A member of the RNA family "tRNA", 68 nucleotides long.
By type it is a transfer RNA.
Its family is annotated with triplet codon-amino acid adaptor activity in the Gene Ontology.
Rfam's curators put it in the seed alignment.
The base pairs follow the family's consensus structure, which is taken from published work.
RNA sequence: GUUAAUGUAGCUUAAAUCCAAAGCAAGGUACUGAAAAUGCCUAGAUGAGUGUAUUAACUCCAUAAACA
Numbered sequence: 001g002u003u004a005a006u007g008u009a010g011c012u013u014a015a016a017u018c019c020a021a022a023g024c025a026a027g028g029u030a031c032u033g034a035a036a037a038u039g040c041c042u043a044g045a046u047g048a049g050u051g052u053a054u055u056a057a058c059u060c061c062a063u064a065a066a067c068a
Stems, first nucleotide, its partner, number of pairs: 001067003005063003010024004026042005047060004